[Rfam]
RNA sequence: AGUGAGUAUAGAGGUGCGAAGAACAAUAGUAAGCAAUAGGAAGUCAGUGAGGACUAGUGAAUAUUGUUGAAAGGGUGAUUCGCCGAAGUAAGCAGAAGCUCAUUUAUUCUGCUCACUGGUGCAGUAUUGAAUAAAUACCGUACUGUCAUAUAGUACUUGUGCUAUAUGGAGGGCUAUCUCACGC
Numbered sequence: 001a002g003u004g005a006g007u008a009u010a011g012a013g014g015u016g017c018g019a020a021g022a023a024c025a026a027u028a029g030u031a032a033g034c035a036a037u038a039g040g041a042a043g044u045c046a047g048u049g050a051g052g053a054c055u056a057g058u059g060a061a062u063a064u065u066g067u068u069g070a071a072a073g074g075g076u077g078a079u080u081c082g083c084c085g086a087a088g089u090a091a092g093c094a095g096a097a098g099c100u101c102a103u104u105u106a107u108u109c110u111g112c113u114c115a116c117u118g119g120u121g122c123a124g125u126a127u128u129g130a131a132u133a134a135a136u137a138c139c140g141u142a143c144u145g146u147c148a149u150a151u152a153g154u155a156c157u158u159g160u161g162c163u164a165u166a167u168g169g170a171g172g173g174c175u176a177u178c179u180c181a182c183g184c
Base pairs, nucleotide, nucleotide: 006179008177009176010175011174016083017082018081019080020079023076024075032068033067034066035065036064037063038062087117088116089115091113092112093111094110095109096108097107118144119143120142121141122140124138125137126136127135128134146169147168148167149166150165151164152163
Shown here is a 184-nucleotide sequence from Natronobacillus azotifigens, a member of the family "Lysine riboswitch aptamer". The source organism's lineage runs through Bacteria, Bacillati, Bacilli, Bacillaceae and Natronobacillus. The base pairs follow the family's consensus structure, which is taken from published work.